[Rfam]
RNA: c-di-GMP-I riboswitch aptamer
Nucleotides: 087
Stems, first nucleotide, its partner, number of pairs: 012037002017032006040081004045077003048072003055066004
Number, partner (000 for none) and nucleotide at each position: 001000u002000a003000a004000u005000c006000u007000u008000c009000a010000g011000g012037g013036c014000a015000a016000a017032c018031c019030u020029a021028c022027u023000g024000a025000a026000a027022a028021g029020u030019g031018g032017g033000g034000a035000c036013g037012c038000a039000a040081a041080g042079u043078u044000u045077c046076c047075g048072g049071u050070c051000u052000a053000c054000a055066g056065g057064g058063c059000g060000a061000a062000a063058g064057c065056c066055c067000c068000a069000g070050g071049a072048u073000a074000g075047c076046g077045g078043g079042a080041u081040u082000g083000c084000u085000a086000a087000g